[Rfam]
Rfam assigns this 103-nucleotide RNA sequence from Microlunatus elymi to the family "SAM (S-adenosyl methionine) riboswitch aptamer". Taxonomically the source falls in Microlunatus (Bacteria, Actinomycetota, Actinomycetes, Propionibacteriales). Gene Ontology terms of the family: S-adenosylmethionine metabolic process and regulation of gene expression.
RNA sequence: GGUCAUGAGCGUCAGCGAAAAGCCCUGGCAUUGCUGACCGGCAACCCCGCACGCGGUGGGUGCCCCAGGUGAAGACCCGGCCAUCAGUUGGCAAGCGCACGGG
Numbered sequence: 001g002g003u004c005a006u007g008a009g010c011g012u013c014a015g016c017g018a019a020a021a022g023c024c025c026u027g028g029c030a031u032u033g034c035u036g037a038c039c040g041g042c043a044a045c046c047c048c049g050c051a052c053g054c055g056g057u058g059g060g061u062g063c064c065c066c067a068g069g070u071g072a073a074g075a076c077c078c079g080g081c082c083a084u085c086a087g088u089u090g091g092c093a094a095g096c097g098c099a100c101g102g103g
Stems, first nucleotide, its partner, number of pairs: 001077004009039001011038006022029001040064003045060002047056002080092004